RNA sequence: UGUCUCCUCCACCCUCCUCCUUUGGUGGAUUAAACCCGAACCGCGAGUUCGGGUUUUUUUUG
Numbered sequence: 001u002g003u004c005u006c007c008u009c010c011a012c013c014c015u016c017c018u019c020c021u022u023u024g025g026u027g028g029a030u031u032a033a034a035c036c037c038g039a040a041c042c043g044c045g046a047g048u049u050c051g052g053g054u055u056u057u058u059u060u061u062g
Base pairs, nucleotide, nucleotide: 008029009028010027011026012025013024033055034054035053036052037051038050039049040048